This 77-nucleotide RNA from Nicotiana sylvestris belongs to the Rfam family "mir-252 microRNA precursor family". NCBI's taxonomy places the organism under Eukaryota, Streptophyta, Streptophytina, Magnoliopsida, Nicotiana. The family's consensus secondary structure was predicted with RNAalifold. The family has 44 seed sequences and 422 matches in Rfam 15.1. A search with the family's covariance model found it, with a score of 54 bits. Its Rfam clan is "mir-252 microRNA precursor family".
RNA sequence: AUUAUGCACUAAGUAUUAGUGCAUUAGCUAAUAUUCGAUAUAUAUAUUAGCUAAUGCACUAAUACUUAGUGCAUAAU
Numbered sequence: 001a002u003u004a005u006g007c008a009c010u011a012a013g014u015a016u017u018a019g020u021g022c023a024u025u026a027g028c029u030a031a032u033a034u035u036c037g038a039u040a041u042a043u044a045u046a047u048u049a050g051c052u053a054a055u056g057c058a059c060u061a062a063u064a065c066u067u068a069g070u071g072c073a074u075a076a077u
Stems, first nucleotide, its partner, number of pairs: 001077007010068010024054007